The family of this 154-nucleotide RNA from Streptomyces beijiangensis is "c-di-AMP riboswitch aptamer (ydaO/yuaA leader)".
RNA sequence: GACACCGACACACCGCACCACGGCAGGAGCGGGGGACCCAGGUAAGCCGCCGCGAUCCAGCGAUCGCGGCUAGGGGUGAAGUCGUGCAGUGCACGGCCGGGCAACUCCAGCCCGAAUCCGACAGCUCACCUCGCAGGCGUAGGAGAGGAACGCA
Numbered sequence: 001g002a003c004a005c006c007g008a009c010a011c012a013c014c015g016c017a018c019c020a021c022g023g024c025a026g027g028a029g030c031g032g033g034g035g036a037c038c039c040a041g042g043u044a045a046g047c048c049g050c051c052g053c054g055a056u057c058c059a060g061c062g063a064u065c066g067c068g069g070c071u072a073g074g075g076g077u078g079a080a081g082u083c084g085u086g087c088a089g090u091g092c093a094c095g096g097c098c099g100g101g102c103a104a105c106u107c108c109a110g111c112c113c114g115a116a117u118c119c120g121a122c123a124g125c126u127c128a129c130c131u132c133g134c135a136g137g138c139g140u141a142g143g144a145g146a147g148g149a150a151c152g153c154a
Stems, first nucleotide, its partner, number of pairs: 003139001005137002011027001029134006039073001074119003082096004099113004